[Rfam]
RNA sequence: GAUAACCAUAAAUAACCAAAGGAUCUAAUGUUGGCUGACUGACUAGGCGCACCGUUUGGGUGGUGGCGUCGUACAAUCCCCCCCAAUACAUGGCUUUGCCUGCCAACAGUAGAGCUCCGGCCCCCAGGAACAGGAGAUGAUGACCCAAAAUUAUCCCUAGUUGCUGGGGGUUUUCCCA
Numbered sequence: 001g002a003u004a005a006c007c008a009u010a011a012a013u014a015a016c017c018a019a020a021g022g023a024u025c026u027a028a029u030g031u032u033g034g035c036u037g038a039c040u041g042a043c044u045a046g047g048c049g050c051a052c053c054g055u056u057u058g059g060g061u062g063g064u065g066g067c068g069u070c071g072u073a074c075a076a077u078c079c080c081c082c083c084c085a086a087u088a089c090a091u092g093g094c095u096u097u098g099c100c101u102g103c104c105a106a107c108a109g110u111a112g113a114g115c116u117c118c119g120g121c122c123c124c125c126a127g128g129a130a131c132a133g134g135a136g137a138u139g140a141u142g143a144c145c146c147a148a149a150a151u152u153a154u155c156c157c158u159a160g161u162u163g164c165u166g167g168g169g170g171u172u173u174u175c176c177c178a
Stems, first nucleotide, its partner, number of pairs: 136175002139172003144169003148165001
Record summary:
The record is a 178-nucleotide sequence from Synechocystis sp., which matches "Antisense RNA which regulates isiA expression" in Rfam. Pairs were carried over by alignment from the consensus structure, which was predicted with PFOLD. It is one of the family's seed sequences. The family has 308 seed sequences and 3,397 matches in Rfam 15.1.